Rfam assigns this 47-nucleotide RNA from Microbacterium sorbitolivorans to the family "Guanidine-II riboswitch aptamer (mini-ykkC)". The match comes from Rfam's covariance-model search (42 bits).
Nucleotides: 047
Stems, first nucleotide, its partner, number of pairs: 001020003005016004034047005
Number, partner (000 for none) and nucleotide at each position: 001020c002019g003018g004000a005016c006015g007014g008013g009000a010000c011000g012000a013008c014007c015006c016005g017000g018003c019002c020001g021000a022000c023000u024000u025000c026000c027000u028000g029000a030000a031000g032000u033000u034047c035046g036045g037044g038043g039000a040000c041000g042000a043038c044037c045036c046035c047034g
Annotation:
Rfam links the family to the GO term regulation of gene expression.